Annotation
Shown here is a 102-nucleotide RNA from Bacillus cytotoxicus, a member of the family "Purine riboswitch aptamer". The family's consensus secondary structure is taken from published work. The sequence is in the family's curated seed alignment.
[Rfam]
RNA sequence: AAUAAAUAAGUUAGCUACACUCAUAUAAUCGCAGGAAUAAGGCCUGCAAGUUUCUACCGAAGUACCGUAAAUACUUCGACUAUGAGUGAGGACGAAUAGAUU
Dot-bracket structure: .................((((((((...(.(((((.......))))).)........(((((((.......)))))))..))))))))..............
Numbered sequence: 001a002a003u004a005a006a007u008a009a010g011u012u013a014g015c016u017a018c019a020c021u022c023a024u025a026u027a028a029u030c031g032c033a034g035g036a037a038u039a040a041g042g043c044c045u046g047c048a049a050g051u052u053u054c055u056a057c058c059g060a061a062g063u064a065c066c067g068u069a070a071a072u073a074c075u076u077c078g079a080c081u082a083u084g085a086g087u088g089a090g091g092a093c094g095a096a097u098a099g100a101u102u
Stems, first nucleotide, its partner, number of pairs: 018088008029049001031047005058078007